[Rfam]
The family of this 127-nucleotide RNA sequence from Gossypium hirsutum is "MIR7502 microRNA precursor family". The family's consensus secondary structure was predicted with RNAalifold. Gene Ontology terms of the family: miRNA-mediated post-transcriptional gene silencing and RISC complex. Rfam 15.1 lists 74,505 matches to the family in 24 species. The sequence is in the family's curated seed alignment. Taxonomically the source falls in Gossypium (Eukaryota, Viridiplantae, Euphyllophyta, Spermatophyta).
RNA sequence: UGUUAAAAAUGUCAUCUAUUUUUACUAUUAAAAAGUCCUUGCACAUUAGAAUAAGGUACAUGUAACUGUUUAGUUAUUCUAUAGCAAUGUCAAUUUUUAACAGUAGAAAUGAAUGAAUUUAUUACUA
Numbered sequence: 001u002g003u004u005a006a007a008a009a010u011g012u013c014a015u016c017u018a019u020u021u022u023u024a025c026u027a028u029u030a031a032a033a034a035g036u037c038c039u040u041g042c043a044c045a046u047u048a049g050a051a052u053a054a055g056g057u058a059c060a061u062g063u064a065a066c067u068g069u070u071u072a073g074u075u076a077u078u079c080u081a082u083a084g085c086a087a088u089g090u091c092a093a094u095u096u097u098u099a100a101c102a103g104u105a106g107a108a109a110u111g112a113a114u115g116a117a118u119u120u121a122u123u124a125c126u127a
Base pairs, nucleotide, nucleotide: 002126004124005123006122008120009119012116013115014114015113018110019109020108021107022106023105024104025103026102028100029099030098031097032096033095